[Rfam]
Annotation
Rfam assigns this 114-nucleotide sequence from Maylandia zebra to the family "Potassium channel RNA editing signal". Rfam's curators write: This family represents a group of sequences related to the human potassium channel Kv1.1 hairpin element which directs the efficient modification of an adenosine to inosine by an adenosine deaminase acting on RNA (ADAR). Gene Ontology term of the family: adenosine to inosine editing. Lineage of the source: Eukaryota > Actinopterygii > Cichliformes > African cichlids > Maylandia zebra complex.

RNA sequence: UUGGGAUAUGGGGAUAUGUAUCCUGAAACAUGGUCAGGAAUGCUCGUGGGUGCCCUCUGCGCCUUGGCUGGGGUGCUGACAAUUGCCAUGCCAGUGCCUGUCAUCGUCAAUAAC
Numbered sequence: 001u002u003g004g005g006a007u008a009u010g011g012g013g014a015u016a017u018g019u020a021u022c023c024u025g026a027a028a029c030a031u032g033g034u035c036a037g038g039a040a041u042g043c044u045c046g047u048g049g050g051u052g053c054c055c056u057c058u059g060c061g062c063c064u065u066g067g068c069u070g071g072g073g074u075g076c077u078g079a080c081a082a083u084u085g086c087c088a089u090g091c092c093a094g095u096g097c098c099u100g101u102c103a104u105c106g107u108c109a110a111u112a113a114c
Base pairs, nucleotide, nucleotide: 002113004111008107009106010105011104013102014101015100016099018097019096020095021094037077038076040074049063050062051061